[Rfam]
RNA sequence: CGCCAUCAUCAAGAGAAGGGCUGGCGCCCUCGCCAACCUGCCAUUCCGGGCAAGGUGGUUUCCGCAACAGGGAUGCGGCUGGUCAGACCCUCAACCGAGGCUUUCCGGCAACUAAGCGGUUAAUU
Numbered sequence: 001c002g003c004c005a006u007c008a009u010c011a012a013g014a015g016a017a018g019g020g021c022u023g024g025c026g027c028c029c030u031c032g033c034c035a036a037c038c039u040g041c042c043a044u045u046c047c048g049g050g051c052a053a054g055g056u057g058g059u060u061u062c063c064g065c066a067a068c069a070g071g072g073a074u075g076c077g078g079c080u081g082g083u084c085a086g087a088c089c090c091u092c093a094a095c096c097g098a099g100g101c102u103u104u105c106c107g108g109c110a111a112c113u114a115a116g117c118g119g120u121u122a123a124u125u
Base pairs, nucleotide, nucleotide: 007075008074009073010072015031017030018029019028020027021026032059033058034057037055038054039053040051041050042049046119047118048117078109079108080107081106
A member of the RNA family "SAM-I/IV (S-adenosyl methionine) riboswitch aptamer" from Roseibium aggregatum, 125 nucleotides long. Taxonomically the source falls in Roseibium (Bacteria, Pseudomonadati, Pseudomonadota, Alphaproteobacteria). Gene Ontology terms of the family: regulation of gene expression and S-adenosylmethionine metabolic process.